[Rfam]
RNA sequence: AAUACUUGUUUGUAUGUUUGUUCAAAGGGUGAACAAAGGUAUACAAGAUAAAUGCCAACCUAAAUUCUCAUUUGUCAUCCAUAAUUCAUUGAUGAGUAUGCUUUUUGCUACAUUCACGAAGGAUUAUA
Number, nucleotide and partner (000 for none) at each position: 001a000002a000003u054004a053005c000006u051007u050008g049009u048010u000011u046012g000013u000014a040015u039016g000017u037018u036019u035020g034021u033022u000023c000024a000025a000026a000027g000028g000029g000030u000031g000032a000033a021034c020035a019036a018037a017038g000039g015040u014041a000042u000043a000044c000045a000046a011047g000048a009049u008050a007051a006052a000053u004054g003055c000056c000057a000058a000059c000060c000061u000062a000063a000064a125065u000066u123067c122068u121069c000070a000071u118072u000073u116074g115075u000076c000077a000078u000079c000080c107081a106082u000083a104084a103085u000086u000087c100088a099089u098090u000091g000092a000093u000094g000095a000096g000097u000098a089099u088100g087101c000102u000103u084104u083105u000106u081107g080108c000109u000110a000111c000112a000113u000114u000115c074116a073117c000118g071119a000120a000121g068122g067123a066124u000125u064126a000127u000128a000
Rfam assigns this 128-nucleotide RNA from Mus musculus to the family "Small nucleolar RNA SNORA40". Pairs were carried over by alignment from the consensus structure, which was predicted with RNAalifold. The snoRNA ACA 40 belongs to the H/ACA family of snoRNAs and guides the pseudouridylation of 28S rRNA subunit at position U4565. NB This family has a high threshold value to exclude a large number of closely related sequences that do not appear to have conserved H and ACA boxes, and may be pseudogenes. A search with the family's covariance model found it, with a score of 51 bits. Rfam 15.1 lists 2,550 matches to the family in 517 species.